RNA sequence: CGCAAGGGAGAGGGAUCCCCUCUCGGGUUUGGACGACACCCCGGCCCCAGUCCCCCAGGUCAUGGGAAAAACUGACCCCGAAGUGCUGCAAGGG
Numbered sequence: 001c002g003c004a005a006g007g008g009a010g011a012g013g014g015a016u017c018c019c020c021u022c023u024c025g026g027g028u029u030u031g032g033a034c035g036a037c038a039c040c041c042c043g044g045c046c047c048c049a050g051u052c053c054c055c056c057a058g059g060u061c062a063u064g065g066g067a068a069a070a071a072c073u074g075a076c077c078c079c080g081a082a083g084u085g086c087u088g089c090a091a092g093g094g
Base pairs, nucleotide, nucleotide: 002051003050006047007046008024009023010022011021012020013019014018025041026040027039028038029036030035058077059076060075061074062073086093087092
RNA: Insect-Specific Flavivirus 3' UTR repeats Ra and Rb elements
Organism: Quang Binh virus